[Rfam]
The family of this 93-nucleotide sequence from Prunus yedoensis is "MIR6288 microRNA precursor family". Taxonomically the source falls in Prunus yedoensis (Eukaryota, Embryophyta, Mesangiospermae, Amygdaloideae). Gene Ontology terms of the family: miRNA-mediated post-transcriptional gene silencing and RISC complex. A search with the family's covariance model found it, with a score of 78 bits.
RNA sequence: CCUCAAUUAACCACUUGUUAUUUUCUAAUUGGUUUUUAGUGUGUUUACAAUUUUCUAAGAACCAAUCAGAAAAUGACAAGUGUCUACUUGAGA
Numbered sequence: 001c002c003u004c005a006a007u008u009a010a011c012c013a014c015u016u017g018u019u020a021u022u023u024u025c026u027a028a029u030u031g032g033u034u035u036u037u038a039g040u041g042u043g044u045u046u047a048c049a050a051u052u053u054u055c056u057a058a059g060a061a062c063c064a065a066u067c068a069g070a071a072a073a074u075g076a077c078a079a080g081u082g083u084c085u086a087c088u089u090g091a092g093a
Base pairs, nucleotide, nucleotide: 002092003091004090005089006088008086009085012082013081014080015079016078017077018076019075020074021073022072023071024070025069026068028066029065030064031063032062033061034060035059036058037057038056039055
Dot-bracket structure: .(((((.((..(((((((((((((((.((((((((((((...............)))))))))))).)))))))))))))))..)).))))).